[Rfam]
RNA sequence: AGCAUAUGCUUGUCUCAAAGAUUAAGCCAUGCAUGUCUAAGUACAAGCCCCCAGUGGGCGAAACCGCGAAUGGCUCAAUAAAUCAGUUAUGGUUCCUUAGAUCGUACUAUAUCCUACUUGGAUAACUGUGGUAAUUCUAGAGCUAAUACAUGCACAAUAGCCCCAACUUCACGGAAGGGGUGCUUUUAUUAGAUCAAGACCAAUCGGGCUUCGGCUCGUCUCUUGGUGACUCUGAAUAACUAUAGCCGAUCGCACGGUCUCGCACCGGCGACGUGUCUUUCAAAUGUCUGCCUUAUCAACUUUCGAUGGUAGGCUAUGCGCCUACCAUGGUUGCAACGGGUAACGGGGAAUCGGGGUUCGAUUCCGGAGAGGGAGCCUGAGAAACGGCUACCACAUCCAAGGAAGGCAGCAGGCGCGCAAAUUACCCACUCCCAGCACGGGGAGGUAGUGACGAAAAAUAACGAUGCAGGACUCAUCCGAGGCCCUGUGAUUGGAAUGAGUACACUUUAAAUCCUUUAACGAGGAUCCAUUGGAGGGCAAGUCUGGUGCCAGCAGCCGCGGUAACUCCAGCUCCAAUAGCGUAUAUUAAAGUUGCUG
Numbered sequence: 001a002g003c004a005u006a007u008g009c010u011u012g013u014c015u016c017a018a019a020g021a022u023u024a025a026g027c028c029a030u031g032c033a034u035g036u037c038u039a040a041g042u043a044c045a046a047g048c049c050c051c052c053a054g055u056g057g058g059c060g061a062a063a064c065c066g067c068g069a070a071u072g073g074c075u076c077a078a079u080a081a082a083u084c085a086g087u088u089a090u091g092g093u094u095c096c097u098u099a100g101a102u103c104g105u106a107c108u109a110u111a112u113c114c115u116a117c118u119u120g121g122a123u124a125a126c127u128g129u130g131g132u133a134a135u136u137c138u139a140g141a142g143c144u145a146a147u148a149c150a151u152g153c154a155c156a157a158u159a160g161c162c163c164c165a166a167c168u169u170c171a172c173g174g175a176a177g178g179g180g181u182g183c184u185u186u187u188a189u190u191a192g193a194u195c196a197a198g199a200c201c202a203a204u205c206g207g208g209c210u211u212c213g214g215c216u217c218g219u220c221u222c223u224u225g226g227u228g229a230c231u232c233u234g235a236a237u238a239a240c241u242a243u244a245g246c247c248g249a250u251c252g253c254a255c256g257g258u259c260u261c262g263c264a265c266c267g268g269c270g271a272c273g274u275g276u277c278u279u280u281c282a283a284a285u286g287u288c289u290g291c292c293u294u295a296u297c298a299a300c301u302u303u304c305g306a307u308g309g310u311a312g313g314c315u316a317u318g319c320g321c322c323u324a325c326c327a328u329g330g331u332u333g334c335a336a337c338g339g340g341u342a343a344c345g346g347g348g349a350a351u352c353g354g355g356g357u358u359c360g361a362u363u364c365c366g367g368a369g370a371g372g373g374a375g376c377c378u379g380a381g382a383a384a385c386g387g388c389u390a391c392c393a394c395a396u397c398c399a400a401g402g403a404a405g406g407c408a409g410c411a412g413g414c415g416c417g418c419a420a421a422u423u424a425c426c427c428a429c430u431c432c433c434a435g436c437a438c439g440g441g442g443a444g445g446u447a448g449u450g451a452c453g454a455a456a457a458a459u460a461a462c463g464a465u466g467c468a469g470g471a472c473u474c475a476u477c478c479g480a481g482g483c484c485c486u487g488u489g490a491u492u493g494g495a496a497u498g499a500g501u502a503c504a505c506u507u508u509a510a511a512u513c514c515u516u517u518a519a520c521g522a523g524g525a526u527c528c529a530u531u532g533g534a535g536g537g538c539a540a541g542u543c544u545g546g547u548g549c550c551a552g553c554a555g556c557c558g559c560g561g562u563a564a565c566u567c568c569a570g571c572u573c574c575a576a577u578a579g580c581g582u583a584u585a586u587u588a589a590a591g592u593u594g595c596u597g
Base pairs, nucleotide, nucleotide: 001587002586004584005583006582007581008580009579010578013456015454016453019449020416026414027413028412030411031410032409035067036066041064042063047059048058074369075368076367084290085289086288089285090284093283094282099278100277101276102275117152119150120149126142127141129139130138131137160181161180162179163178164177167174168173186239187238188237189236190235199227200226201225202224207216208215209214250271251270252269253268255267256266257265258264292340293339294338299331300330301329306328307327308326309325310324311323312322313321344366345365346364347363348359349358350357351356371392372391374389375388376387394405396403397402422447424446425445426444430442431441432440433439462493463492464491465489466488467487468486469485470484472481473480474479500520501519502517504516530576531575532574533573534572535571543570544569545568546567552559553558
About this RNA:
The family of this 597-nucleotide part of an RNA from Oryzias javanicus is "Eukaryotic small subunit ribosomal RNA". It scores 1740 bits against the family's covariance model.